[Rfam]
RNA sequence: UCAUACACUGAGUGGCCAGAUUAUUAUGUGUUCAGUGGCCAUAAUAAUCUGGCCACUCAGUGUGUGU
Numbered sequence: 001u002c003a004u005a006c007a008c009u010g011a012g013u014g015g016c017c018a019g020a021u022u023a024u025u026a027u028g029u030g031u032u033c034a035g036u037g038g039c040c041a042u043a044a045u046a047a048u049c050u051g052g053c054c055a056c057u058c059a060g061u062g063u064g065u066g067u
Base pairs, nucleotide, nucleotide: 004064005063006062007061008060009059010058011057012056013055014054015053016052017051019049020048021047022046023045024044025043026042027041028040
Rfam assigns this 67-nucleotide RNA from Pipistrellus kuhlii to the family "mir-9256 microRNA precursor family". Pairs were carried over by alignment from the consensus structure, which was predicted with RNAalifold. NCBI's taxonomy places the organism under Eukaryota, Bilateria, Theria, Laurasiatheria, Pipistrellus.